[Rfam]
RNA sequence: UAAAACAAAAAACAAAAAAAAUUGAAAUCAAUUUUAAACAAUACUUGGUGGUGGUCUUUUCUAAACUUACGUUUCGUGAAAUAAAACCCUAGUAUAUUUAAAACUUAAAAUAUUCAAAAGGCUUGUC
Numbered sequence: 001u002a003a004a005a006c007a008a009a010a011a012a013c014a015a016a017a018a019a020a021a022u023u024g025a026a027a028u029c030a031a032u033u034u035u036a037a038a039c040a041a042u043a044c045u046u047g048g049u050g051g052u053g054g055u056c057u058u059u060u061c062u063a064a065a066c067u068u069a070c071g072u073u074u075c076g077u078g079a080a081a082u083a084a085a086a087c088c089c090u091a092g093u094a095u096a097u098u099u100a101a102a103a104c105u106u107a108a109a110a111u112a113u114u115c116a117a118a119a120g121g122c123u124u125g126u127c
Stems, first nucleotide, its partner, number of pairs: 036099003041095005047090002050087001055084001058081002062076001064074002